Shown here is a 77-nucleotide sequence from Denticeps clupeoides, a member of the family "mir-460 microRNA precursor family".
RNA sequence: CCCUACAGUUCCUGCAUUGUACACACUGUGCGUGGUAGAUGUGUAUGCACAGCGCAUACAAUGUGGAUGCUGUGUGU
Numbered sequence: 001c002c003c004u005a006c007a008g009u010u011c012c013u014g015c016a017u018u019g020u021a022c023a024c025a026c027u028g029u030g031c032g033u034g035g036u037a038g039a040u041g042u043g044u045a046u047g048c049a050c051a052g053c054g055c056a057u058a059c060a061a062u063g064u065g066g067a068u069g070c071u072g073u074g075u076g077u
Base pairs, nucleotide, nucleotide: 012066013065015063016062017061018060019059020058021057024054026052027051028050029049030048031047
Its family is annotated with RISC complex and miRNA-mediated post-transcriptional gene silencing in the Gene Ontology. Rfam 15.1 lists 1,029 matches to the family in 498 species. NCBI's taxonomy places the organism under Eukaryota, Metazoa, Craniata, Clupeiformes, Denticeps.